The record is a 114-nucleotide RNA from Etheostoma spectabile, which matches "Potassium channel RNA editing signal" in Rfam. It scores 103 bits against the family's covariance model. By type it is a cis-regulatory element. Its family is annotated with adenosine to inosine editing in the Gene Ontology. The source organism's lineage runs through Eukaryota, Clupeocephala, Neoteleostei, Acanthomorphata and Oligocephalus.

RNA sequence: CUGGGCUACGGGGAUAUGUACCCCGAGACAUGGUCAGGAAUGCUUGUGGGUGCCCUCUGCGCCUUGGCUGGUGUGCUGACCAUCGCCAUGCCUGUGCCCGUCAUCGUCAACAAC
Numbered sequence: 001c002u003g004g005g006c007u008a009c010g011g012g013g014a015u016a017u018g019u020a021c022c023c024c025g026a027g028a029c030a031u032g033g034u035c036a037g038g039a040a041u042g043c044u045u046g047u048g049g050g051u052g053c054c055c056u057c058u059g060c061g062c063c064u065u066g067g068c069u070g071g072u073g074u075g076c077u078g079a080c081c082a083u084c085g086c087c088a089u090g091c092c093u094g095u096g097c098c099c100g101u102c103a104u105c106g107u108c109a110a111c112a113a114c
Base pairs, nucleotide, nucleotide: 002113004111008107009106010105011104013102014101015100018097019096020095021094037077038076040074049063050062051061